RNA sequence: ACAGGAAAAUGACCUAUGAAUUGACAGACUGUCUUCUAAAUCUGUCUGUCACUUCUGUAGGCCAAUAUUCUGC
Numbered sequence: 001a002c003a004g005g006a007a008a009a010u011g012a013c014c015u016a017u018g019a020a021u022u023g024a025c026a027g028a029c030u031g032u033c034u035u036c037u038a039a040a041u042c043u044g045u046c047u048g049u050c051a052c053u054u055c056u057g058u059a060g061g062c063c064a065a066u067a068u069u070c071u072g073c
Base pairs, nucleotide, nucleotide: 002072003071004070005069006068008066010064011063013061014060015059016058018055019054020053022051023050024049025048026047027046028045029044031042
RNA: mir-192/215 microRNA precursor family